[Rfam]
RNA sequence: CCCUGACAGUCGCAUGGUGUGACUGACUUAACCCUGACAGGAGAUCAUUAUG
Numbered sequence: 001c002c003c004u005g006a007c008a009g010u011c012g013c014a015u016g017g018u019g020u021g022a023c024u025g026a027c028u029u030a031a032c033c034c035u036g037a038c039a040g041g042a043g044a045u046c047a048u049u050a051u052g
Base pairs, nucleotide, nucleotide: 002041003040004039005038007025008024009023010022011021